Annotation:
This 92-nucleotide RNA sequence from Pseudomonas sp. M30-35 belongs to the Rfam family "Selenocysteine transfer RNA". For this family Rfam cites "tRNAscan-SE: a program for improved detection of transfer RNA genes in genomic sequence" (Lowe and Eddy, Nucleic Acids Res, 1997). Lineage of the source: Bacteria > Pseudomonadota > Gammaproteobacteria > Pseudomonadales > Pseudomonas. The family's consensus secondary structure is taken from published work.

RNA sequence: GGAAGGCAAUCACGCCCGGUGGCGUGGCCGGGCUUCAAACUCGGUAGGGGACGGCAGCCGUUCCUAGGUAAGUUCGACUCUUACUGCCUUCC
Dot-bracket structure: ((((((((..((((((....))))))((((((.......)))))).(((((.........)))))...((((.......)))).))))))))
Numbered sequence: 001g002g003a004a005g006g007c008a009a010u011c012a013c014g015c016c017c018g019g020u021g022g023c024g025u026g027g028c029c030g031g032g033c034u035u036c037a038a039a040c041u042c043g044g045u046a047g048g049g050g051a052c053g054g055c056a057g058c059c060g061u062u063c064c065u066a067g068g069u070a071a072g073u074u075c076g077a078c079u080c081u082u083a084c085u086g087c088c089u090u091c092c
Stems, first nucleotide, its partner, number of pairs: 001092008011026006027045006047065005069083004